[Rfam]
RNA: Bacteroidales-1 6S-Bacteroidales RNA suggested
Organism: Breznakibacter xylanolyticus
Nucleotides: 179
Base pairs, nucleotide, nucleotide: 051125052124055122056121057120058119059118060117061116062115065112066111072106073105074104075103076085077084078083092099093098
Number, partner (000 for none) and nucleotide at each position: 001000a002000u003000c004000a005000a006000c007000a008000u009000u010000a011000u012000u013000u014000g015000a016000u017000u018000g019000u020000u021000a022000a023000a024000c025000u026000c027000a028000a029000c030000a031000u032000u033000a034000a035000a036000a037000a038000c039000a040000u041000c042000c043000a044000g045000a046000g047000u048000a049000a050000c051125g052124c053000u054000g055122u056121u057120g058119g059118u060117u061116u062115a063000a064000a065112g066111g067000g068000c069000g070000g071000g072106c073105c074104u075103c076085a077084c078083c079000u080000u081000c082000g083078g084077g085076u086000u087000a088000u089000c090000a091000a092099a093098u094000u095000u096000u097000g098093a099092u100000a101000c102000g103075g104074a105073g106072g107000a108000u109000u110000a111066c112065c113000g114000a115062u116061a117060a118059g119058c120057u121056a122055a123000u124052g125051c126000a127000c128000u129000c130000a131000a132000a133000c134000c135000c136000u137000g138000u139000u140000a141000g142000c143000a144000g145000g146000a147000g148000u149000u150000u151000a152000a153000a154000u155000a156000a157000u158000c159000c160000a161000a162000g163000u164000u165000g166000a167000u168000g169000c170000g171000g172000u173000u174000c175000u176000u177000a178000u179000a